[Rfam]
Nucleotides: 090
Stems, first nucleotide, its partner, number of pairs: 001090002004087005013043005021032003026078004044070004049066002051062004074082001
Number, partner (000 for none) and nucleotide at each position: 001090u002089a003000g004087u005086u006085a007084u008083c009000a010000a011000g012000a013043a014042g015041a016040c017039g018000g019000g020000a021032g022031a023030g024000a025000u026078a027077u028076a029075g030023c031022u032021c033000u034000g035000u036000g037000a038000a039017c040016g041015u042014c043013u044070a045069c046068c047067a048000a049066c050065c051062u052061g053060u054059a055000a056000a057000a058000a059054u060053a061052c062051a063000a064000a065050g066049g067047u068046g069045g070044u071000a072000a073000a074082g075029c076028u077027a078026u079000a080000a081000g082074c083008g084007a085006u086005g087004a088000g089002u090001g

A member of the RNA family "SAM riboswitch aptamer (S box leader)" from Haploplasma axanthum, 90 nucleotides long. Gene Ontology term of the family: regulation of gene expression. The source organism's lineage runs through Bacteria, Bacillati, Mycoplasmatota, Acholeplasmataceae and Haploplasma.